[Rfam]
RNA sequence: AAAAAGGGCUUCUGCCGUGCGUGGCACGGGGGGGUCACGCGCCACCUCCGCGGAAUCGACAUCAAGAGAUUUCGGAAGCACAAUUUUUGCAAUAAAGGGUUGCCGGUAACCGUUUGUUCCGGCUCCCCG
Numbered sequence: 001a002a003a004a005a006g007g008g009c010u011u012c013u014g015c016c017g018u019g020c021g022u023g024g025c026a027c028g029g030g031g032g033g034g035u036c037a038c039g040c041g042c043c044a045c046c047u048c049c050g051c052g053g054a055a056u057c058g059a060c061a062u063c064a065a066g067a068g069a070u071u072u073c074g075g076a077a078g079c080a081c082a083a084u085u086u087u088u089g090c091a092a093u094a095a096a097g098g099g100u101u102g103c104c105g106g107u108a109a110c111c112g113u114u115u116g117u118u119c120c121g122g123c124u125c126c127c128c129g
Stems, first nucleotide, its partner, number of pairs: 008079005013026005027050006034043001036041001051074007097127003102123005108118003
RNA: U11 spliceosomal RNA